[Rfam]
RNA sequence: CCGAUUCAUAGCUCGACGGAGCGAAAACGGGAAACCUUCACCCGCUGGAAUCGGCACCUAUUCCCGAAGG
Numbered sequence: 001c002c003g004a005u006u007c008a009u010a011g012c013u014c015g016a017c018g019g020a021g022c023g024a025a026a027a028c029g030g031g032a033a034a035c036c037u038u039c040a041c042c043c044g045c046u047g048g049a050a051u052c053g054g055c056a057c058c059u060a061u062u063c064c065c066g067a068a069g070g
Stems, first nucleotide, its partner, number of pairs: 001054007011022004028044004035070005

Background: Shown here is a 70-nucleotide sequence from Acidithiobacillus marinus, a member of the family "int-alpA RNA". From the family's description: Acidobacteria (1 example), Planctomycetes (1 example), Proteobacteria. Pairs were carried over by alignment from the consensus structure, which is taken from published work. The match comes from Rfam's covariance-model search (54 bits). The family's RNA type in Rfam is small RNA.